[Rfam]
RNA sequence: AUGAUAACAUGGGGAGAGACCACAGCUUUCAAGUUUAACUACGUUUACAUGUGGCGCCGAAGGAGCAAGCAACAAGAAGUUGUGAAUCUCUCAGGCAAAAAGACUCUUGUUGGACG
Numbered sequence: 001a002u003g004a005u006a007a008c009a010u011g012g013g014g015a016g017a018g019a020c021c022a023c024a025g026c027u028u029u030c031a032a033g034u035u036u037a038a039c040u041a042c043g044u045u046u047a048c049a050u051g052u053g054g055c056g057c058c059g060a061a062g063g064a065g066c067a068a069g070c071a072a073c074a075a076g077a078a079g080u081u082g083u084g085a086a087u088c089u090c091u092c093a094g095g096c097a098a099a100a101a102g103a104c105u106c107u108u109g110u111u112g113g114a115c116g
Stems, first nucleotide, its partner, number of pairs: 006111004011106003020054004056096003059092002063090003069083004
RNA: Glycine riboswitch aptamer
Organism: Schinkia azotoformans